[Rfam]
RNA sequence: UCGGAGCUUUUUGCGGUCUGGGCUUGCUGUUCCUUCCACCUGUAGCCAGGAAGCCCUUACCCCAAAAAGUAUCCG
Numbered sequence: 001u002c003g004g005a006g007c008u009u010u011u012u013g014c015g016g017u018c019u020g021g022g023c024u025u026g027c028u029g030u031u032c033c034u035u036c037c038a039c040c041u042g043u044a045g046c047c048a049g050g051a052a053g054c055c056c057u058u059a060c061c062c063c064a065a066a067a068a069g070u071a072u073c074c075g
Base pairs, nucleotide, nucleotide: 007069008068009067010066011065012064013063015061016060017059020056021055022054023053025051027049028048
Shown here is a 75-nucleotide RNA from Anguilla anguilla, a member of the family "mir-129 microRNA precursor family". On this family, see Lagos-Quintana et al., Curr Biol 2002: "Identification of tissue-specific microRNAs from mouse". The match comes from Rfam's covariance-model search (90 bits).